[Rfam]
RNA: FMN riboswitch aptamer (RFN element)
Organism: Bacillus sp. FJAT-18017
RNA sequence: UGUAUCCUUCGGGGCAGGGUGAAAUUCCCUACCGGCGGUGAUGAAGCAAAAGCUUCUAAGCCCGUGACCCGCUUGCCAAUGGCAAACGGUGGACUUGGUGAAAAUCCAGGGCCGACAGUAUAGUCUGGAUGGGAGAAGGAUUGG
Numbered sequence: 001u002g003u004a005u006c007c008u009u010c011g012g013g014g015c016a017g018g019g020u021g022a023a024a025u026u027c028c029c030u031a032c033c034g035g036c037g038g039u040g041a042u043g044a045a046g047c048a049a050a051a052g053c054u055u056c057u058a059a060g061c062c063c064g065u066g067a068c069c070c071g072c073u074u075g076c077c078a079a080u081g082g083c084a085a086a087c088g089g090u091g092g093a094c095u096u097g098g099u100g101a102a103a104a105u106c107c108a109g110g111g112c113c114g115a116c117a118g119u120a121u122a123g124u125c126u127g128g129a130u131g132g133g134a135g136a137a138g139g140a141u142u143g144g
Base pairs, nucleotide, nucleotide: 004141005140006139007138008137009136010135017029018028019027031124032123033114034113035065036064037063038062060112061111069089070088094110095109096108097107098106116127117126118125